[Rfam]
RNA sequence: UCGGUGCCGGUUCACUCCGCCGUGUCGCGACACGACGGGGACCCGGCACC
Dot-bracket structure: ..(((.((((....(((((.(((((....))))).)))))..)))).)))
L31-Actinobacteria ribosomal protein leader: a 50-nucleotide sequence from Allosaccharopolyspora coralli. A search with the family's covariance model found it, with a score of 43 bits. Rfam classes the family as a cis-regulatory leader. The family is grouped with related families in Rfam's "Ribosomal Protein L31 Leader clan".